[Rfam]
RNA sequence: AAAAAGGUCUUCUGUUGUGAGUGACACAUAGAGCAGCCUAAUUACUCUCUGUGUGGAAUUGACAUCAAGAGAUUUCAGAAACAUAAUUUUUUGGUACGUGGGCAGCUGGUGAUAGUUGGUCCUGGGCCCAA
Numbered sequence: 001a002a003a004a005a006g007g008u009c010u011u012c013u014g015u016u017g018u019g020a021g022u023g024a025c026a027c028a029u030a031g032a033g034c035a036g037c038c039u040a041a042u043u044a045c046u047c048u049c050u051g052u053g054u055g056g057a058a059u060u061g062a063c064a065u066c067a068a069g070a071g072a073u074u075u076c077a078g079a080a081a082c083a084u085a086a087u088u089u090u091u092u093g094g095u096a097c098g099u100g101g102g103c104a105g106c107u108g109g110u111g112a113u114a115g116u117u118g119g120u121c122c123u124g125g126g127c128c129c130a131a
Base pairs, nucleotide, nucleotide: 010080011079012078013026014025015024016023017022027053028052029051030050031049032048033045035043036042054077055076056075057074058073059072060071100129101128102127103126106125107124108123109122111121112120113119